Rfam assigns this 131-nucleotide RNA from Mus spicilegus to the family "Small nucleolar RNA SNORA17". Clan: SNORA17 clan. The match comes from Rfam's covariance-model search (95 bits). The family's consensus secondary structure was predicted with RNAalifold. The organism belongs to Mus, within Eukaryota. A reference for the family is Ofengand and Bakin (1997), "Mapping to nucleotide resolution of pseudouridine residues in large subunit ribosomal RNAs from representative eukaryotes, prokaryotes, archaebacteria, mitochondria and chloroplasts", J Mol Biol. From the family's description: snoRNA ACA 17 belongs to the H/ACA family of snoRNAs and is predicted to guide pseudouridylation of the 28S rRNA at positions U4659 and U4598. It shares the same host gene together with ACA43. NB This family has a high threshold value to exclude a large number of closely related sequences that do not appear to have conserved H and ACA boxes, and may be pseudogenes.
RNA sequence: GCUGCUCCUAAGGCCUUAAAGGUGUGGCUGCAGUGUCACACGUGUUGCAGUAGGUGGCAGAGAAGAGAGGGGCUAUGUCUACACUCAGUCUUCUGACCAAUAAAUAUCCAAAUGAUUAGUAGCCUAACAUU
Numbered sequence: 001g002c003u004g005c006u007c008c009u010a011a012g013g014c015c016u017u018a019a020a021g022g023u024g025u026g027g028c029u030g031c032a033g034u035g036u037c038a039c040a041c042g043u044g045u046u047g048c049a050g051u052a053g054g055u056g057g058c059a060g061a062g063a064a065g066a067g068a069g070g071g072g073c074u075a076u077g078u079c080u081a082c083a084c085u086c087a088g089u090c091u092u093c094u095g096a097c098c099a100a101u102a103a104a105u106a107u108c109c110a111a112a113u114g115a116u117u118a119g120u121a122g123c124c125u126a127a128c129a130u131u
Stems, first nucleotide, its partner, number of pairs: 002060005007054004013048002018045001020043001023040006067128001070125007082114002085111001088108001089106001091104002